[Rfam]
RNA sequence: UGCACUGCAUGGUAUCUGCAUUCAAUAGUGUAUUCUUGCUGGGUGUUCAAAGGGCAGUGCAGUAUAAAUUCAGUAUCUGGCAUCAUUGGCUUUUUUUGGCUUUGUGCAUGCUAAACCUGCUAUUUUUAUUGAGACACUA
Numbered sequence: 001u002g003c004a005c006u007g008c009a010u011g012g013u014a015u016c017u018g019c020a021u022u023c024a025a026u027a028g029u030g031u032a033u034u035c036u037u038g039c040u041g042g043g044u045g046u047u048c049a050a051a052g053g054g055c056a057g058u059g060c061a062g063u064a065u066a067a068a069u070u071c072a073g074u075a076u077c078u079g080g081c082a083u084c085a086u087u088g089g090c091u092u093u094u095u096u097u098g099g100c101u102u103u104g105u106g107c108a109u110g111c112u113a114a115a116c117c118u119g120c121u122a123u124u125u126u127u128a129u130u131g132a133g134a135c136a137c138u139a
Stems, first nucleotide, its partner, number of pairs: 002060006015053003018046007026038003063128002066125004071119003080107004
Dot-bracket structure: .((((((.......((((((((((.(((.......))).)))))))....))).))))))..((.((((.(((......((((....................)))).........)))..)))).))...........
RNA: Small nucleolar RNA SNORA8